[Rfam]
RNA: Eukaryotic small subunit ribosomal RNA, nucleotides 1639 to 1803
Organism: Saitozyma podzolica
RNA sequence: CCGCCCGUCGCUACUACCGAUUGAAUGGCUUAGUGAGAUCUCCGGAUUGGCGUUGGGGAGCCGGCAACGGCACCCCUUGGCUGAGAAGUUGAUCAAACUUGGUCAUUUAGAGGAAGUAAAAGUCGUAACAAGGUUUCCGUAGGUGAACCUGCGGAAGGAUCAUUA
Number, nucleotide and partner (000 for none) at each position: 001c132002c000003g129004c000005c000006c125007g124008u000009c122010g000011c000012u118013a117014c116015u115016a000017c113018c112019g000020a000021u109022u000023g108024a107025a106026u105027g104028g103029c102030u101031u000032a099033g098034u097035g000036a000037g094038a093039u092040c091041u000042c000043c088044g000045g000046a000047u084048u083049g082050g081051c080052g000053u000054u000055g076056g075057g074058g000059a000060g071061c070062c069063g000064g000065c000066a000067a000068c000069g062070g061071c060072a000073c000074c057075c056076c055077u000078u000079g000080g051081c050082u049083g048084a047085g000086a000087a000088g043089u000090u000091g040092a039093u038094c037095a000096a000097a034098c033099u032100u000101g030102g029103u028104c027105a026106u025107u024108u023109a021110g000111a000112g018113g017114a000115a015116g014117u013118a012119a000120a000121a000122g009123u000124c007125g006126u000127a000128a000129c003130a000131a000132g001133g000134u157135u156136u155137c154138c153139g152140u151141a150142g149143g148144u000145g000146a000147a000148c143149c142150u141151g140152c139153g138154g137155a136156a135157g134158g000159a000160u000161c000162a000163u000164u000165a000